Description:
The record is a 138-nucleotide RNA from Oryzias latipes, which matches "Small nucleolar RNA SNORA79" in Rfam. ACA65 (SNORA79) is a member of the H/ACA class of snoRNAs that guide the sites of modification of uridines to pseudouridines. A search with the family's covariance model found it, with a score of 68 bits. Pairs were carried over by alignment from the consensus structure, which was predicted with RNAalifold. By type it is an H/ACA-box small nucleolar RNA. The family has 25 seed sequences and 944 matches in Rfam 15.1.
RNA sequence: CGACGGCGGUUCCUCUUCCUGUCUGAAGUCAAGCAGGAGGAUUUUACGCCGUCGCAGAGAACUGUGGGUCUUUUCACCCAGAAAGCUGCAGGUGGAGCCCGCCAACACGGCUCUCUGGUUUUGUGGGACCCCACAAAC
Number, nucleotide and partner (000 for none) at each position: 001c054002g053003a052004c051005g050006g049007c048008g047009g000010u000011u000012c000013c000014u041015c040016u039017u038018c037019c000020u035021g034022u033023c000024u000025g000026a000027a000028g000029u000030c000031a000032a000033g022034c021035a020036g000037g018038a017039g016040g015041a014042u000043u000044u000045u000046a000047c008048g007049c006050c005051g004052u003053c002054g001055c000056a000057g000058a000059g000060a000061a000062c000063u000064g000065u000066g000067g130068g129069u128070c127071u126072u125073u000074u000075c000076a000077c000078c118079c117080a116081g115082a114083a000084a112085g111086c110087u109088g000089c000090a000091g103092g102093u101094g100095g099096a000097g000098c000099c095100c094101g093102c092103c091104a000105a000106c000107a000108c000109g087110g086111c085112u084113c000114u082115c081116u080117g079118g078119u000120u000121u000122u000123g000124u000125g072126g071127g070128a069129c068130c067131c000132c000133a000134c000135a000136a000137a000138c000